The family of this 70-nucleotide RNA from Triplophysa tibetana is "Small nucleolar RNA SNORD2".
For this family Rfam cites "Identification of a novel box C/D snoRNA from mouse nucleolar cDNA library" (Zhou et al., Gene, 2004).
Its family is annotated with RNA processing and nucleolus in the Gene Ontology.
A search with the family's covariance model found it, with a score of 69 bits.
Rfam classes the family as a C/D-box small nucleolar RNA.
RNA sequence: GUAUGAAAUGAUGGUUUUCAUCUUUCGGGACUGACCUUUCAUGGAGAAAUUUAAACAUGACUGAUCAUAC
Numbered sequence: 001g002u003a004u005g006a007a008a009u010g011a012u013g014g015u016u017u018u019c020a021u022c023u024u025u026c027g028g029g030a031c032u033g034a035c036c037u038u039u040c041a042u043g044g045a046g047a048a049a050u051u052u053a054a055a056c057a058u059g060a061c062u063g064a065u066c067a068u069a070c
Stems, first nucleotide, its partner, number of pairs: 001070006